[Rfam]
RNA sequence: AGGCCAAAGGAUGAUCGUGGAUUUAAAUUUCUCACGACGGUCGUCUGAUACACUUUGUGUGAAUAUUGAUGUAAUAAUCCAUUUUUCUGAUGGCA
Number, nucleotide and partner (000 for none) at each position: 001a000002g094003g000004c092005c000006a000007a000008a000009g000010g000011a000012u000013g000014a000015u000016c000017g000018u000019g000020g000021a000022u000023u000024u000025a000026a000027a000028u000029u000030u000031c000032u000033c000034a000035c000036g000037a000038c000039g000040g000041u000042c000043g000044u000045c000046u000047g000048a000049u000050a000051c059052a058053c057054u000055u000056u000057g053058u052059g051060u000061g000062a000063a000064u000065a000066u000067u000068g000069a000070u000071g000072u000073a000074a000075u000076a000077a000078u000079c000080c000081a000082u000083u000084u000085u000086u000087c000088u000089g000090a000091u000092g004093g000094c002095a000

Shown here is a 95-nucleotide RNA from Salvia splendens, a member of the family "Small nucleolar RNA Z161/Z228". Taxonomically the source falls in core Calosphace (Eukaryota, Streptophytina, Gunneridae, asterids). The family's RNA type in Rfam is C/D-box small nucleolar RNA. Its Rfam clan is "SNORD35 clan".